[Rfam]
RNA: Group II catalytic intron D1-D4-3
RNA sequence: UCCGUCGCGAGGCGGAAUCUGAAGGAAGCUGAAGGCAAACUCCUGGCCCGACGAACAGGAACCGUAUAUGAGGCUCCCGCAUCUGGGCGAGAGGGCUAAGAUCCUCGAAACCCGAUAGCUAUCCAGAAGGUGCGGUAGUAAAUGCGGCGGGUAGGUGGGAGGAAGGUCGCGCGU
Numbered sequence: 001u002c003c004g005u006c007g008c009g010a011g012g013c014g015g016a017a018u019c020u021g022a023a024g025g026a027a028g029c030u031g032a033a034g035g036c037a038a039a040c041u042c043c044u045g046g047c048c049c050g051a052c053g054a055a056c057a058g059g060a061a062c063c064g065u066a067u068a069u070g071a072g073g074c075u076c077c078c079g080c081a082u083c084u085g086g087g088c089g090a091g092a093g094g095g096c097u098a099a100g101a102u103c104c105u106c107g108a109a110a111c112c113c114g115a116u117a118g119c120u121a122u123c124c125a126g127a128a129g130g131u132g133c134g135g136u137a138g139u140a141a142a143u144g145c146g147g148c149g150g151g152u153a154g155g156u157g158g159g160a161g162g163a164a165g166g167u168c169g170c171g172c173g174u
Stems, first nucleotide, its partner, number of pairs: 001016006028174002035167002040161006046152005062147006073139003077135007085113003091106004